[Rfam]
RNA sequence: UCUCAGGGCCCUGUCUCCCAACCCUUGUACCAGGGGUGCACCUCAGACGCUGGUACAGGCCUGGGGGGCAAGGACCUGGGA
Numbered sequence: 001u002c003u004c005a006g007g008g009c010c011c012u013g014u015c016u017c018c019c020a021a022c023c024c025u026u027g028u029a030c031c032a033g034g035g036g037u038g039c040a041c042c043u044c045a046g047a048c049g050c051u052g053g054u055a056c057a058g059g060c061c062u063g064g065g066g067g068g069c070a071a072g073g074a075c076c077u078g079g080g081a
Base pairs, nucleotide, nucleotide: 010072012070014068015067016066017065018064022059023058026057027056028055029054030053031052032051

Shown here is an 81-nucleotide RNA from Octodon degus, a member of the family "mir-150 microRNA precursor family".
Gene Ontology terms of the family: RISC complex and miRNA-mediated post-transcriptional gene silencing.
On this family, see Coutinho et al., Physiol Genomics 2007: "Discovery and profiling of bovine microRNAs from immune-related and embryonic tissues".